Background:
Shown here is a 94-nucleotide sequence from Solihabitans fulvus, a member of the family "Glycine riboswitch aptamer". A search with the family's covariance model found it, with a score of 58 bits.
[Rfam]
RNA sequence: GCAACCCGAGCGGGAGAGACUCCGGCACGUCGCCGGGGCGCCGAAGGAGCAAGUUUCCCCGCACACUCUCAGGCAGCGAGACCGCCCGGGUGAG
Numbered sequence: 001g002c003a004a005c006c007c008g009a010g011c012g013g014g015a016g017a018g019a020c021u022c023c024g025g026c027a028c029g030u031c032g033c034c035g036g037g038g039c040g041c042c043g044a045a046g047g048a049g050c051a052a053g054u055u056u057c058c059c060c061g062c063a064c065a066c067u068c069u070c071a072g073g074c075a076g077c078g079a080g081a082c083c084g085c086c087c088g089g090g091u092g093a094g
Base pairs, nucleotide, nucleotide: 006089007088008087010085011084012083013082020038021037022036023035024034025033040074041073042072043070044069047068048067049066053062054061